[Rfam]
RNA sequence: UACUUUUGCAGCCGUCCUACAAUAGCUGUAGUACAUACAUAAAAAUCAUUAAAUAAAUAUUGGAAUG
Numbered sequence: 001u002a003c004u005u006u007u008g009c010a011g012c013c014g015u016c017c018u019a020c021a022a023u024a025g026c027u028g029u030a031g032u033a034c035a036u037a038c039a040u041a042a043a044a045a046u047c048a049u050u051a052a053a054u055a056a057a058u059a060u061u062g063g064a065a066u067g
Stems, first nucleotide, its partner, number of pairs: 014034002017031003
Dot-bracket structure: .............((.(((.........))).)).................................

Rfam assigns this 67-nucleotide RNA from Flavobacterium crassostreae to the family "S15-Flavobacteria ribosomal protein leader". Pairs were carried over by alignment from the consensus structure, which is taken from published work. Clan: Ribosomal Protein S15 Leader clan. A search with the family's covariance model found it, with a score of 65 bits. The organism belongs to Flavobacterium, within Bacteria. On this family, see Eckert and Weinberg, BMC Microbiol 2020: "Discovery of 20 novel ribosomal leader candidates in bacteria and archaea".